This 48-nucleotide sequence from Nocardioides psychrotolerans belongs to the Rfam family "L31-Actinobacteria ribosomal protein leader". The literature on the family includes a 2020 paper in BMC Microbiol by Eckert and Weinberg, "Discovery of 20 novel ribosomal leader candidates in bacteria and archaea". Pairs were carried over by alignment from the consensus structure, which is taken from published work. It is annotated as a cis-regulatory leader. The match comes from Rfam's covariance-model search (52 bits).

RNA sequence: UUGGUUCCGGUUCACGCUCCCGCAAUCAGUGGGGACGACCCGGCGGCC
Numbered sequence: 001u002u003g004g005u006u007c008c009g010g011u012u013c014a015c016g017c018u019c020c021c022g023c024a025a026u027c028a029g030u031g032g033g034g035a036c037g038a039c040c041c042g043g044c045g046g047c048c
Stems, first nucleotide, its partner, number of pairs: 003048003007043004015037002018034006